[Rfam]
A member of the RNA family "ylbH leader" from Aeribacillus pallidus, 131 nucleotides long. The family's RNA type in Rfam is cis-regulatory leader. Rfam's curators write: This family is a putative regulatory RNA structure that is found upstream of the ylbH gene in B. subtilis and related low GC Gram-positive bacteria. Gene Ontology term of the family: regulation of gene expression.

RNA sequence: AUAAAAAAAAGCCUGCAGAUUGGAUCUGCAGGAUCCUUCCUAGCUUUGAAGCAAAAUCUUCAAAGCAGAAGGGAAAGGGAGAGGAGAAACCGGAGGAAGAACUUAUGGGGAAACGUAAGUCUUCUCCGCGG
Numbered sequence: 001a002u003a004a005a006a007a008a009a010a011g012c013c014u015g016c017a018g019a020u021u022g023g024a025u026c027u028g029c030a031g032g033a034u035c036c037u038u039c040c041u042a043g044c045u046u047u048g049a050a051g052c053a054a055a056a057u058c059u060u061c062a063a064a065g066c067a068g069a070a071g072g073g074a075a076a077g078g079g080a081g082a083g084g085a086g087a088a089a090c091c092g093g094a095g096g097a098a099g100a101a102c103u104u105a106u107g108g109g110g111a112a113a114c115g116u117a118a119g120u121c122u123u124c125u126c127c128g129c130g131g
Stems, first nucleotide, its partner, number of pairs: 012032008034079005043066009091128004096124004101120005